[Rfam]
RNA sequence: AAAUUAAAUAAUCUCCGUGCAAAAAUAUCUAAGGAAUAAGGCAUAUGCUUAAAUCUAUGAUAUUGCGCCAAAGUGAAAAAUUAUAUGAUUAAUCACUUUCAGGGUUACUUGGGAAACCAUUUGACCUUCCGUAUUUGAAAAGGAGAGUUAUUUACUUAGGC
Numbered sequence: 001a002a003a004u005u006a007a008a009u010a011a012u013c014u015c016c017g018u019g020c021a022a023a024a025a026u027a028u029c030u031a032a033g034g035a036a037u038a039a040g041g042c043a044u045a046u047g048c049u050u051a052a053a054u055c056u057a058u059g060a061u062a063u064u065g066c067g068c069c070a071a072a073g074u075g076a077a078a079a080a081u082u083a084u085a086u087g088a089u090u091a092a093u094c095a096c097u098u099u100c101a102g103g104g105u106u107a108c109u110u111g112g113g114a115a116a117c118c119a120u121u122u123g124a125c126c127u128u129c130c131g132u133a134u135u136u137g138a139a140a141a142g143g144a145g146a147g148u149u150a151u152u153u154a155c156u157u158a159g160g161c
Stems, first nucleotide, its partner, number of pairs: 004154001006152001012146005019068002024064006033056003070099007102127006110119003128138002